The family of this 74-nucleotide RNA sequence from Actinidia chinensis is "Plastid-ycf2 5UTR RNA".
[Rfam]
RNA sequence: GUGCAUCCAGUAGGAAUUGAACAUACGAAUUCCUCAAUUAUGAGCUCGGAGCAUAACCAUUCAGCCAUGGAUGC
Numbered sequence: 001g002u003g004c005a006u007c008c009a010g011u012a013g014g015a016a017u018u019g020a021a022c023a024u025a026c027g028a029a030u031u032c033c034u035c036a037a038u039u040a041u042g043a044g045c046u047c048g049g050a051g052c053a054u055a056a057c058c059a060u061u062c063a064g065c066c067a068u069g070g071a072u073g074c
Stems, first nucleotide, its partner, number of pairs: 003074006010026003014022001040068003044065003048061002051058001
The family's RNA type in Rfam is cis-regulatory element. Pairs were carried over by alignment from the consensus structure, which was predicted with LocARNA. Plastid ycf2 is a non-coding RNA (ncRNA) recognised in plastids. It was found in the prime untranslated region (5UTR) of ycf2 genes, it presents a tRNA-like motif which suggests it can be involved in mRNA maturation, particularly involved in defining the precise 5' end of the transcript. The source organism's lineage runs through Eukaryota, Streptophyta, Euphyllophyta, Pentapetalae and Actinidia chinensis. The literature on the family includes a 2023 paper in Plant Commun by Richter et al., "Retrograde signaling in plants: A critical review focusing on the GUN pathway and beyond".